[Rfam]
Overview:
Rfam assigns this 137-nucleotide RNA from Austrofundulus limnaeus to the family "Small nucleolar RNA SNORA84".
RNA sequence: GCCUGGUGGUUCCUAGAGUCGGCUCCAAAGUGCUGAAACUGUGGGUUUUUAUUAACGGGCGCACAUUGAUUUCUGCAGUUUCAUGCAUGGAAGCUGCCUCCACAGCAGCGCUCCAUAGCCCGGCUGCAGAUACACGA
Numbered sequence: 001g002c003c004u005g006g007u008g009g010u011u012c013c014u015a016g017a018g019u020c021g022g023c024u025c026c027a028a029a030g031u032g033c034u035g036a037a038a039c040u041g042u043g044g045g046u047u048u049u050u051a052u053u054a055a056c057g058g059g060c061g062c063a064c065a066u067u068g069a070u071u072u073c074u075g076c077a078g079u080u081u082c083a084u085g086c087a088u089g090g091a092a093g094c095u096g097c098c099u100c101c102a103c104a105g106c107a108g109c110g111c112u113c114c115a116u117a118g119c120c121c122g123g124c125u126g127c128a129g130a131u132a133c134a135c136g137a
Stems, first nucleotide, its partner, number of pairs: 001060004007051002012045004017040001019037001020035004073129001075127006085119002087116004093109005
A search with the family's covariance model found it, with a score of 73 bits. By type it is an H/ACA-box small nucleolar RNA. For this family Rfam cites "Experimental RNomics: identification of 140 candidates for small non-messenger RNAs in the plant Arabidopsis thaliana" (Marker et al., Curr Biol, 2002). NCBI's taxonomy places the organism under Eukaryota, Chordata, Vertebrata, Eurypterygia, Austrofundulus.